RNA sequence: CGAUGAACGCCCACCUCGCCACGCGCCACGCUGACUCCGCCCGGAUGGCCUCCGGCAUGACCUCGCGCGCGCGCCGACCGGAACCCGCCACUGCUGGGUAAUCCGGAGCGUUUUCCU
Numbered sequence: 001c002g003a004u005g006a007a008c009g010c011c012c013a014c015c016u017c018g019c020c021a022c023g024c025g026c027c028a029c030g031c032u033g034a035c036u037c038c039g040c041c042c043g044g045a046u047g048g049c050c051u052c053c054g055g056c057a058u059g060a061c062c063u064c065g066c067g068c069g070c071g072c073g074c075c076g077a078c079c080g081g082a083a084c085c086c087g088c089c090a091c092u093g094c095u096g097g098g099u100a101a102u103c104c105g106g107a108g109c110g111u112u113u114u115c116c117u
Base pairs, nucleotide, nucleotide: 033117038110039109040108041106042105043079044078046076047075048074049073055070056069058067059066080104081103084098085097086096087095088093

The record is a 117-nucleotide RNA from Thermomonas haemolytica, which matches "Xanthomonadaceae sRNA Xoo5" in Rfam.
Rfam classes the family as a small RNA.
Taxonomically the source falls in Thermomonas (Bacteria, Pseudomonadota, Gammaproteobacteria, Lysobacteraceae).
Pairs were carried over by alignment from the consensus structure, which was predicted with RNAalifold.